RNA sequence: CCCGCAUUCUAAGUAGUAGUGCCGCAGGUGAGAGUUGUCUGAAGUUCACCUGCACUCUACUAUUUAUCAUGCUGG
Numbered sequence: 001c002c003c004g005c006a007u008u009c010u011a012a013g014u015a016g017u018a019g020u021g022c023c024g025c026a027g028g029u030g031a032g033a034g035u036u037g038u039c040u041g042a043a044g045u046u047c048a049c050c051u052g053c054a055c056u057c058u059a060c061u062a063u064u065u066a067u068c069a070u071g072c073u074g075g
Base pairs, nucleotide, nucleotide: 001075002074004072005071006070007069010066011065012064013063014062015061016060017059018058019057024053025052026051027050028049029048030047
The record is a 75-nucleotide RNA from Darwinula stevensoni, which matches "mir-252 microRNA precursor family" in Rfam. The family has 44 seed sequences and 422 matches in Rfam 15.1. Its family is annotated with miRNA-mediated post-transcriptional gene silencing and RISC complex in the Gene Ontology. A reference for the family is Ruby et al. (2006), "Large-scale sequencing reveals 21U-RNAs and additional microRNAs and endogenous siRNAs in C. elegans", Cell. The organism belongs to Darwinula, within Eukaryota.